[Rfam]
RNA sequence: AAAUUACAACUUAAUGCUUUUCGUAUAAUUCCGGGAAUAGGCCCGGAUGUCUCUACGAGAUCACCGUAAAUGAUCUGGCUACGAAAGGAAGAAGCGUGAAC
Numbered sequence: 001a002a003a004u005u006a007c008a009a010c011u012u013a014a015u016g017c018u019u020u021u022c023g024u025a026u027a028a029u030u031c032c033g034g035g036a037a038u039a040g041g042c043c044c045g046g047a048u049g050u051c052u053c054u055a056c057g058a059g060a061u062c063a064c065c066g067u068a069a070a071u072g073a074u075c076u077g078g079c080u081a082c083g084a085a086a087g088g089a090a091g092a093a094g095c096g097u098g099a100a101c
Base pairs, nucleotide, nucleotide: 018087019086020085021084022083023082024081025080030047031046032045033044034043035042058076059075060074061073062072063071
Background: This 101-nucleotide sequence from Paenibacillus anaericanus belongs to the Rfam family "Purine riboswitch aptamer". The match comes from Rfam's covariance-model search (74 bits). From the family's description: Riboswitches are metabolite binding domains within certain messenger RNAs that serve as precision sensors for their corresponding targets. Allosteric rearrangement of mRNA structure is mediated by ligand binding, and this results in modulation of gene expression. A class of riboswitches that selectively recognises guanine and becomes saturated at concentrations as low as 5 nM. In Bacillus subtilis, this mRNA motif is located on at least five separate transcriptional units that together encode 17 genes that are mostly involved in purine transport and purine nucleotide biosynthesis. It has also been shown that some members of this family are specific for adenine instead. Hence this family are termed purine riboswitches.